RNA sequence: CUGUGAGUAUUCUUGCUGUUCUGAUUUUGUAAUAAUCAGGAAGCCUAAACAUUUGCUAUAUUAAGACCAUUCACGUGUCCCCAGACCUAGUUCUUCCCCUAGGUCUGGUUUUAUCAAUACUUAUGAUAAAC
Numbered sequence: 001c002u003g004u005g006a007g008u009a010u011u012c013u014u015g016c017u018g019u020u021c022u023g024a025u026u027u028u029g030u031a032a033u034a035a036u037c038a039g040g041a042a043g044c045c046u047a048a049a050c051a052u053u054u055g056c057u058a059u060a061u062u063a064a065g066a067c068c069a070u071u072c073a074c075g076u077g078u079c080c081c082c083a084g085a086c087c088u089a090g091u092u093c094u095u096c097c098c099c100u101a102g103g104u105c106u107g108g109u110u111u112u113a114u115c116a117a118u119a120c121u122u123a124u125g126a127u128a129a130a131c
Stems, first nucleotide, its partner, number of pairs: 003056003016043002019041008066124001069121001081108010
Dot-bracket structure: ..(((..........((.((((((((.......))))))))))..........))).........(..(...........((((((((((........))))))))))............)..).......